The record is a 78-nucleotide RNA from Rhodinocichla rosea, which matches "mir-103/107 microRNA precursor family" in Rfam. Gene Ontology terms of the family: miRNA-mediated post-transcriptional gene silencing and RISC complex. Rfam describes the family as follows. This family consists of the mammalian microRNA (miRNA) precursors mir-103 and mir107. Animal miRNAs are transcribed as ~70nt precursors and subsequently processed by the Dicer enzyme to give a ~22nt product. In this case the mature sequence comes from the 3' arm of the precursor. The extents of the hairpin precursors are not generally known and are estimated based on hairpin prediction. The products are thought to have regulatory roles through complementarity to mRNA. The involvement of Dicer in miRNA processing suggests a relationship with the phenomenon of RNA interference. miRNAs are numbered based on the sequence of the mature RNA.

RNA sequence: UACUGCCUUCGGCUUCUUUACAGUGCUGCUUUUUUUUUUUUUUAUCAAGCAGCAUUGUACAGGGCUAUGAUUUUUUUU
Number, nucleotide and partner (000 for none) at each position: 001u000002a000003c000004u000005g000006c000007c000008u000009u000010c000011g000012g000013c000014u064015u063016c062017u061018u000019u059020a058021c057022a056023g055024u054025g053026c052027u051028g050029c000030u049031u048032u047033u000034u000035u000036u000037u000038u000039u000040u000041u000042u000043u000044a000045u000046c000047a032048a031049g030050c028051a027052g026053c025054a024055u023056u022057g021058u020059a019060c000061a017062g016063g015064g014065c000066u000067a000068u000069g000070a000071u000072u000073u000074u000075u000076u000077u000078u000
The organism belongs to Rhodinocichla, within Eukaryota.